[Rfam]
RNA sequence: GAAAGGGUAUGUAGUUUCCGUACAUGCCUGGGCUGGGAUAUCGGAAGGAUACAUUCCGGUAGGAUGCAGCAGUAAAUGAGUUACACCAGACUUCAUUUAUAAAUAGAAGAUACUCAUUUCGCAUUCGCAGCCUCAAUUAGG
Dot-bracket structure: ....((((((((.........))))))))((((((............................................................................................))))))........
RNA: S4-Clostridia ribosomal protein leader